[Rfam]
RNA sequence: CCGGCUCCGGUUCACCCGUCAUCGAAACAGGGACCCGGCGGCC
Number, nucleotide and partner (000 for none) at each position: 001c000002c000003g043004g042005c041006u000007c038008c037009g036010g035011u000012u000013c000014a000015c032016c031017c030018g000019u025020c024021a000022u000023c000024g020025a019026a000027a000028c000029a000030g017031g016032g015033a000034c000035c010036c009037g008038g007039c000040g000041g005042c004043c003
Annotation: This 43-nucleotide RNA from Nocardia sp. NRRL S-836 belongs to the Rfam family "L31-Actinobacteria ribosomal protein leader". The family is grouped with related families in Rfam's "Ribosomal Protein L31 Leader clan". The family's RNA type in Rfam is cis-regulatory leader. The base pairs follow the family's consensus structure, which is taken from published work.